[Rfam]
RNA sequence: AGGUAAGGGCGCAUGGUGGAUGCCUCGGCAUGGGCAGGCGAUGAAGGGCGUGGCAAGCUGCGAUAAGCCGCGGGGAGCCGCAAGCAGGCUGUGAUCCGCGGAUUCCCGAAUGGGGCAACCCGGCCGGUCGAAGACCGGUCAUCCACGGGCUGAAUCCAUAGGCCCGUGGAGGCGAACCCGGGGAACUGAAACAUCUCAGUACCCGGAGGAAAAGAAAGCAACCGCGAUUCCCUGAGUAGUGGCGAGCGAAAGGGGAACAGCCCAAACCGGCGUCGUUUCGGCGGCGCCGGGGUUGUAGGGCCCGCCAUAUGGGAUCGGAAGGUGAAGUCGAAGCGUGCUGGAAAGCCGCGCCAUAGAGGGUGAUAGCCCCGUAGGCGUAAGCCGACCGAUCUCGGCGGUGUCCCUGAGUACCACGGGACCGGUGGAAUCCUGUGGGAAGCUGCCAGCACCAUCUGGCAAGGCUAAAUACUCGCCCAUGACCGAUAGCGCACUAGUACCGUGAGGGAAAGGUGAAAAGAACGCCUAGUAGGCGAGUGAAAAGGACCUGAAACCAUGCGCCUACAAC
Numbered sequence: 001a002g003g004u005a006a007g008g009g010c011g012c013a014u015g016g017u018g019g020a021u022g023c024c025u026c027g028g029c030a031u032g033g034g035c036a037g038g039c040g041a042u043g044a045a046g047g048g049c050g051u052g053g054c055a056a057g058c059u060g061c062g063a064u065a066a067g068c069c070g071c072g073g074g075g076a077g078c079c080g081c082a083a084g085c086a087g088g089c090u091g092u093g094a095u096c097c098g099c100g101g102a103u104u105c106c107c108g109a110a111u112g113g114g115g116c117a118a119c120c121c122g123g124c125c126g127g128u129c130g131a132a133g134a135c136c137g138g139u140c141a142u143c144c145a146c147g148g149g150c151u152g153a154a155u156c157c158a159u160a161g162g163c164c165c166g167u168g169g170a171g172g173c174g175a176a177c178c179c180g181g182g183g184a185a186c187u188g189a190a191a192c193a194u195c196u197c198a199g200u201a202c203c204c205g206g207a208g209g210a211a212a213a214g215a216a217a218g219c220a221a222c223c224g225c226g227a228u229u230c231c232c233u234g235a236g237u238a239g240u241g242g243c244g245a246g247c248g249a250a251a252g253g254g255g256a257a258c259a260g261c262c263c264a265a266a267c268c269g270g271c272g273u274c275g276u277u278u279c280g281g282c283g284g285c286g287c288c289g290g291g292g293u294u295g296u297a298g299g300g301c302c303c304g305c306c307a308u309a310u311g312g313g314a315u316c317g318g319a320a321g322g323u324g325a326a327g328u329c330g331a332a333g334c335g336u337g338c339u340g341g342a343a344a345g346c347c348g349c350g351c352c353a354u355a356g357a358g359g360g361u362g363a364u365a366g367c368c369c370c371g372u373a374g375g376c377g378u379a380a381g382c383c384g385a386c387c388g389a390u391c392u393c394g395g396c397g398g399u400g401u402c403c404c405u406g407a408g409u410a411c412c413a414c415g416g417g418a419c420c421g422g423u424g425g426a427a428u429c430c431u432g433u434g435g436g437a438a439g440c441u442g443c444c445a446g447c448a449c450c451a452u453c454u455g456g457c458a459a460g461g462c463u464a465a466a467u468a469c470u471c472g473c474c475c476a477u478g479a480c481c482g483a484u485a486g487c488g489c490a491c492u493a494g495u496a497c498c499g500u501g502a503g504g505g506a507a508a509g510g511u512g513a514a515a516a517g518a519a520c521g522c523c524u525a526g527u528a529g530g531c532g533a534g535u536g537a538a539a540a541g542g543a544c545c546u547g548a549a550a551c552c553a554u555g556c557g558c559c560u561a562c563a564a565c
Base pairs, nucleotide, nucleotide: 007560008559009558010557011556012555013554014553015552016551022545023510024509027481028480029478030477031476032475033474034473035472036470037469038173039172046107047106048105049062050061051060068101069100070099071098072097073096074095077089078088079087112121113120114119122140123139124138125137126136127135128134142170143169144168145167146166148164149163150162151161177208178206179205180204181203182202188195189194218225219224228466229256230255231254232253233252239247240246259463260462261461262460267290268289269288270287271286272285273284297405298404299403302398303397304396305395313391314390315389316388317387318386321383322382323381327376328375329374333349334348335347337346338345352356358370359369360368411435412434413433414432415431416430417429418428442457443456444455445454446453497504498503520532521531522530523529
Dot-bracket structure: ......((((((((((.....(((..(((((((((((((......((((((........))).....(((((((..(((.......))).....)))))))...)))....(((....)))(((((((.....))))))).(((((.((((.........)))).))))).))...((((((.....((....))......))))).).........((....))..((((((.....((.....))....)))))..((((....(((((((..........)))))))......(((..((((.......((((((..(((...(((...(((.((......)))))..(...).(((.......)))...)))....)))..))))))...))))....))).....((((((((.........))))))))......(((((......)))))..))))..)..)).))))))).))...............((....))....)).........((((.....))))............).....)))))))))).....

The record is a 565-nucleotide part of an RNA from Rhodothermus marinus, which matches "Bacterial large subunit ribosomal RNA" in Rfam. The source organism's lineage runs through Bacteria, Pseudomonadati, Rhodothermales, Rhodothermaceae and Rhodothermus marinus.